[Rfam]
RNA sequence: CAGUUAAAGCGUUCGUAGUCGAACCGGGUUGAAUUGCGUGACAGUCAGACUCUCAAGGUGUGAUGAGCGCUGUGAUUCUGGGGAAUAAGGAGUGUUUAGGGGCCAGGGUAUUAAACGGCAAGCGGUGAAAUGUGUUGACCCGUUUAUGGAGCGACAGAGGCGAAAGGCUGGCCAGGGGCAAAUCCGAUGAUAAAGGACGUAGGCUAGAGGAUCGAAGACGAUUAGAGACCGUUGUAGUUCUAGCAGUAAACAAUGCCGAUGUUGUGGUGCCGUAACGGACGCAAAAGAGAAAUCUAGUAGGGCCCUGGGGAGAGUACACGCGCAACAGGAAAUUUAAAGGAAAU
Numbered sequence: 001c002a003g004u005u006a007a008a009g010c011g012u013u014c015g016u017a018g019u020c021g022a023a024c025c026g027g028g029u030u031g032a033a034u035u036g037c038g039u040g041a042c043a044g045u046c047a048g049a050c051u052c053u054c055a056a057g058g059u060g061u062g063a064u065g066a067g068c069g070c071u072g073u074g075a076u077u078c079u080g081g082g083g084a085a086u087a088a089g090g091a092g093u094g095u096u097u098a099g100g101g102g103c104c105a106g107g108g109u110a111u112u113a114a115a116c117g118g119c120a121a122g123c124g125g126u127g128a129a130a131u132g133u134g135u136u137g138a139c140c141c142g143u144u145u146a147u148g149g150a151g152c153g154a155c156a157g158a159g160g161c162g163a164a165a166g167g168c169u170g171g172c173c174a175g176g177g178g179c180a181a182a183u184c185c186g187a188u189g190a191u192a193a194a195g196g197a198c199g200u201a202g203g204c205u206a207g208a209g210g211a212u213c214g215a216a217g218a219c220g221a222u223u224a225g226a227g228a229c230c231g232u233u234g235u236a237g238u239u240c241u242a243g244c245a246g247u248a249a250a251c252a253a254u255g256c257c258g259a260u261g262u263u264g265u266g267g268u269g270c271c272g273u274a275a276c277g278g279a280c281g282c283a284a285a286a287g288a289g290a291a292a293u294c295u296a297g298u299a300g301g302g303c304c305c306u307g308g309g310g311a312g313a314g315u316a317c318a319c320g321c322g323c324a325a326c327a328g329g330a331a332a333u334u335u336a337a338a339g340g341a342a343a344u
Base pairs, nucleotide, nucleotide: 001307002306003305011198012197013196014195018191019190020189089185090184091183093180094179095178096177097176101173102172103171104170105169106168107152111148112146113145114144115143116142117141118140122133123132124131161166203244204243205242206241207240208239213237217233218232219231220230255303256302257301259298260297262284263283264282265281266280268279270277287294288293309335310334311333320326